[Rfam]
RNA: Small nucleolar RNA U109
RNA sequence: AAGCAUGGCACACUGGCCGGGCAUCCUGCUUCUCUUUAAAGAGCAUGGAUUUAUCUGUAACAUGCCACAUUAAUGAAAUGAGUUUUCAGGGCUGCCAACCUCUUGGUUAAGGUUCUGCACAGUGUAUUUCUCCUACAAUA
Numbered sequence: 001a002a003g004c005a006u007g008g009c010a011c012a013c014u015g016g017c018c019g020g021g022c023a024u025c026c027u028g029c030u031u032c033u034c035u036u037u038a039a040a041g042a043g044c045a046u047g048g049a050u051u052u053a054u055c056u057g058u059a060a061c062a063u064g065c066c067a068c069a070u071u072a073a074u075g076a077a078a079u080g081a082g083u084u085u086u087c088a089g090g091g092c093u094g095c096c097a098a099c100c101u102c103u104u105g106g107u108u109a110a111g112g113u114u115c116u117g118c119a120c121a122g123u124g125u126a127u128u129u130c131u132c133c134u135a136c137a138a139u140a
Base pairs, nucleotide, nucleotide: 003065004064005063006062007061025047027045028044029043030042031041080132081131082130091120095117097114098113099112100111101110